[Rfam]
MIR397 microRNA precursor family: a 119-nucleotide sequence from Salix dunnii. The literature on the family includes a 2009 paper in BMC Genomics by Mica et al., "High throughput approaches reveal splicing of primary microRNA transcripts and tissue specific expression of mature microRNAs in Vitis vinifera". Pairs were carried over by alignment from the consensus structure, which was predicted with WAR. The match comes from Rfam's covariance-model search (55 bits). Lineage of the source: Eukaryota > Streptophytina > Tracheophyta > Salicaceae > Salix. Gene Ontology terms of the family: RISC complex and miRNA-mediated post-transcriptional gene silencing.
RNA sequence: UAGAAAAACAUGAUUGAAUGCAGCGCUGGUGAAAUGAUGCCAAGCUCCAUAAAGGGCUGGUAGCAGUUGAUAACAUAAAAUAUAAGAUUUCAUCAACGCUGCACUCAAUGAUGGUUCUC
Numbered sequence: 001u002a003g004a005a006a007a008a009c010a011u012g013a014u015u016g017a018a019u020g021c022a023g024c025g026c027u028g029g030u031g032a033a034a035u036g037a038u039g040c041c042a043a044g045c046u047c048c049a050u051a052a053a054g055g056g057c058u059g060g061u062a063g064c065a066g067u068u069g070a071u072a073a074c075a076u077a078a079a080a081u082a083u084a085a086g087a088u089u090u091c092a093u094c095a096a097c098g099c100u101g102c103a104c105u106c107a108a109u110g111a112u113g114g115u116u117c118u119c
Stems, first nucleotide, its partner, number of pairs: 006116002009113003013109005019103007027095002030092003